[Rfam]
RNA sequence: GUGCUCCACAUGAGUAAGGAAAAUAACAAUUCAGAGUGACACCUGAAUCCUCACUGCUUAUGUGAGAUGACUUUUUGAGUGGGUAAAGGUUGCCCCAAAGGUGAUCUCCUACUUUGUGGGAUGCCUGGGUGUCACAAUCUGACCA
Numbered sequence: 001g002u003g004c005u006c007c008a009c010a011u012g013a014g015u016a017a018g019g020a021a022a023a024u025a026a027c028a029a030u031u032c033a034g035a036g037u038g039a040c041a042c043c044u045g046a047a048u049c050c051u052c053a054c055u056g057c058u059u060a061u062g063u064g065a066g067a068u069g070a071c072u073u074u075u076u077g078a079g080u081g082g083g084u085a086a087a088g089g090u091u092g093c094c095c096c097a098a099a100g101g102u103g104a105u106c107u108c109c110u111a112c113u114u115u116g117u118g119g120g121a122u123g124c125c126u127g128g129g130u131g132u133c134a135c136a137a138u139c140u141g142a143c144c145a
Stems, first nucleotide, its partner, number of pairs: 004019002008015001029048006050066005080145003084141001087140006096129001099126005105119002108116001
Annotation:
The record is a 145-nucleotide RNA sequence from Otolemur garnettii, which matches "U12 minor spliceosomal RNA" in Rfam. Pairs were carried over by alignment from the consensus structure. Lineage of the source: Eukaryota > Eumetazoa > Vertebrata > Theria > Otolemur. For this family Rfam cites "Pre-mRNA splicing: the discovery of a new spliceosome doubles the challenge" (Tarn and Steitz, Trends Biochem Sci, 1997). Clan: U2 clan.